This 84-nucleotide RNA sequence from Bacillus salinus belongs to the Rfam family "c-di-GMP-I riboswitch aptamer". It scores 74 bits against the family's covariance model. Pairs were carried over by alignment from the consensus structure, which is taken from published work.
RNA sequence: AUUUGAAAAAGGCAAAUCUACUGAAAGGUAGAGACGCAAAGUCACAGAUCUACGGUUCCUUACUAAGAUGGCUGGGCUACCAAA
Numbered sequence: 001a002u003u004u005g006a007a008a009a010a011g012g013c014a015a016a017u018c019u020a021c022u023g024a025a026a027g028g029u030a031g032a033g034a035c036g037c038a039a040a041g042u043c044a045c046a047g048a049u050c051u052a053c054g055g056u057u058c059c060u061u062a063c064u065a066a067g068a069u070g071g072c073u074g075g076g077c078u079a080c081c082a083a084a
Base pairs, nucleotide, nucleotide: 012037013036017032018031019030020029021028022027040078041077042076043075045074046073047072048069049068050067055063056062